[Rfam]
RNA sequence: CGCUUGCGGCCUGGAACUUCGACUCAACCUCUGUAUGGGCUCUAGAUAAGGUCGAGGUGAGCAAAGUUUCAGGUGUGCAAGCGU
Number, nucleotide and partner (000 for none) at each position: 001c000002g082003c081004u080005u079006g078007c077008g000009g074010c073011c072012u071013g070014g069015a000016a067017c066018u065019u064020c000021g000022a000023c061024u060025c059026a058027a000028c057029c056030u055031c000032u000033g000034u000035a000036u000037g000038g000039g000040c000041u000042c000043u000044a000045g000046a000047u000048a000049a000050g000051g000052u000053c000054g000055a030056g029057g028058u026059g025060a024061g023062c000063a000064a019065a018066g017067u016068u000069u014070c013071a012072g011073g010074u009075g000076u000077g007078c006079a005080a004081g003082c002083g000084u000

The family of this 84-nucleotide RNA from Halicephalobus sp. NKZ332 is "mir-87 microRNA precursor family". The organism belongs to Halicephalobus, within Eukaryota. For this family Rfam cites "Temporal regulation of microRNA expression in Drosophila melanogaster mediated by hormonal signals and broad-Complex gene activity" (Sempere et al., Dev Biol, 2003).